[Rfam]
RNA: Whalefall-1 RNA
RNA sequence: GCACCUCCCCCAGGUGGGUGGGGGGGGCAGAGCCAGGUCUCGCUUGGCUCUGGGAGAGGAC
Dot-bracket structure: ...(((((((((......)))))))))..(((((((((...)))))))))...........